[Rfam]
RNA sequence: UUCCCCUCUUUCACUUUGCCAGUCAGACAUCUUGUCUUCAUUGGUCAUUCAAGGGGGGUAAAACAAAUGUCCUUUUAAAACCCAGGUAAACAAGUAUUGUUUAACUUGGAUCCUGUCAGAGGAAACAGCU
Numbered sequence: 001u002u003c004c005c006c007u008c009u010u011u012c013a014c015u016u017u018g019c020c021a022g023u024c025a026g027a028c029a030u031c032u033u034g035u036c037u038u039c040a041u042u043g044g045u046c047a048u049u050c051a052a053g054g055g056g057g058g059u060a061a062a063a064c065a066a067a068u069g070u071c072c073u074u075u076u077a078a079a080a081c082c083c084a085g086g087u088a089a090a091c092a093a094g095u096a097u098u099g100u101u102u103a104a105c106u107u108g109g110a111u112c113c114u115g116u117c118a119g120a121g122g123a124a125a126c127a128g129c130u
Stems, first nucleotide, its partner, number of pairs: 033060005041052004070123006083108001084106002087103005

The record is a 130-nucleotide RNA sequence from Alligator sinensis, which matches "Small nucleolar RNA SNORA27" in Rfam. The match comes from Rfam's covariance-model search (116 bits). Rfam describes the family as follows. ACA27 is a member of the H/ACA class of snoRNA that guide the sites of modification of uridines to pseudouridines. By type it is an H/ACA-box small nucleolar RNA. Rfam links the family to the GO terms RNA processing and nucleolus. The pairing is the family consensus, mapped onto this sequence.